[Rfam]
Rfam assigns this 68-nucleotide sequence from Williamsia sp. 1138 to the family "ASdes TB sRNA". Pairs were carried over by alignment from the consensus structure, which is taken from published work. The organism belongs to Williamsia, within Bacteria. The family's RNA type in Rfam is small RNA. Rfam 15.1 lists 1,192 matches to the family in 825 species.
RNA sequence: GCAGCUUCGGGGUCCAUGAGCCGCGAGACGACCAGGUAGUCACGCAACGCGAUGGCGUGCCGGUUGUC
Numbered sequence: 001g002c003a004g005c006u007u008c009g010g011g012g013u014c015c016a017u018g019a020g021c022c023g024c025g026a027g028a029c030g031a032c033c034a035g036g037u038a039g040u041c042a043c044g045c046a047a048c049g050c051g052a053u054g055g056c057g058u059g060c061c062g063g064u065u066g067u068c
Base pairs, nucleotide, nucleotide: 005062008059009058012029013028015027017025018024035056037054038053040052041051043049044048